[Rfam]
RNA sequence: ACGGCAGCCCGGUGAGGCCAAGGUCGAUCCGGAAGAGAAGGUUCGUCCUCCCGACCCGGGCACCCAGCACGGUUCCCGGCACCCACGCGGAGUCAUAGCCGCGAUAAUGGCAAAAGUGUUGCGGGCCUGCGUAGUUGCGGAAUACCGAAUGCGUCGACGGCCCUUUGGGUGGGGUUGCAGCAGGAAGUGCCGCAAACGCGCCGAGGCCAACCCACGCAGCCCACACAUGCACGCUUGGUAACCGGACGACCGUGCUGGCGGGCGGCGAUCGAAAUCCUUUCGGUCGUCGCCCGCUUCGCAUU
Numbered sequence: 001a002c003g004g005c006a007g008c009c010c011g012g013u014g015a016g017g018c019c020a021a022g023g024u025c026g027a028u029c030c031g032g033a034a035g036a037g038a039a040g041g042u043u044c045g046u047c048c049u050c051c052c053g054a055c056c057c058g059g060g061c062a063c064c065c066a067g068c069a070c071g072g073u074u075c076c077c078g079g080c081a082c083c084c085a086c087g088c089g090g091a092g093u094c095a096u097a098g099c100c101g102c103g104a105u106a107a108u109g110g111c112a113a114a115a116g117u118g119u120u121g122c123g124g125g126c127c128u129g130c131g132u133a134g135u136u137g138c139g140g141a142a143u144a145c146c147g148a149a150u151g152c153g154u155c156g157a158c159g160g161c162c163c164u165u166u167g168g169g170u171g172g173g174g175u176u177g178c179a180g181c182a183g184g185a186a187g188u189g190c191c192g193c194a195a196a197c198g199c200g201c202c203g204a205g206g207c208c209a210a211c212c213c214a215c216g217c218a219g220c221c222c223a224c225a226c227a228u229g230c231a232c233g234c235u236u237g238g239u240a241a242c243c244g245g246a247c248g249a250c251c252g253u254g255c256u257g258g259c260g261g262g263c264g265g266c267g268a269u270c271g272a273a274a275u276c277c278u279u280u281c282g283g284u285c286g287u288c289g290c291c292c293g294c295u296u297c298g299c300a301u302u
Base pairs, nucleotide, nucleotide: 003064004063007061008060009059010058011057012056016052017051021049022048025045026044027043029041030040065257066256067255068254069253070252071251072250073249076245077244078243079242083238084237085236087234088233089232092230093229098111099110100109118220119219120218121217122216123215124208125207126206127205128204129201130200131199132198135195136194137193138192139191140190144188145187150182151181152180158177159176160175161174162173163172164171258294259293260292261291262290263289264288265287266286267285268284270282271281272280
RNA: Mycobacterium smegmatis small RNA 1